[Rfam]
RNA sequence: GUGGCUGUAGCUCAGUUGGUAGAGUCCCGGAUUGUGAUUCCGGUUGUCGUGGGUUCGAGCCCCAUCAGCCACC
Number, nucleotide and partner (000 for none) at each position: 001g072002u071003g070004g069005c068006u067007g066008u000009a000010g025011c024012u023013c022014a000015g000016u000017u000018g000019g000020u000021a000022g013023a012024g011025u010026c000027c043028c042029g041030g040031a039032u000033u000034g000035u000036g000037a000038u000039u031040c030041c029042g028043g027044u000045u000046g000047u000048c000049g065050u064051g063052g062053g061054u000055u000056c000057g000058a000059g000060c000061c053062c052063c051064a050065u049066c007067a006068g005069c004070c003071a002072c001073c000
RNA: tRNA